[Rfam]
RNA sequence: GAGUGAGGUGAUGUUUCAUCUUUCGGGACUUACCCAAUAAUGGGGACAAACUUUUUUGCUGAUCACUC
Numbered sequence: 001g002a003g004u005g006a007g008g009u010g011a012u013g014u015u016u017c018a019u020c021u022u023u024c025g026g027g028a029c030u031u032a033c034c035c036a037a038u039a040a041u042g043g044g045g046a047c048a049a050a051c052u053u054u055u056u057u058g059c060u061g062a063u064c065a066c067u068c
Stems, first nucleotide, its partner, number of pairs: 001068006
RNA: Small nucleolar RNA SNORD2
Organism: Muraenolepis orangiensis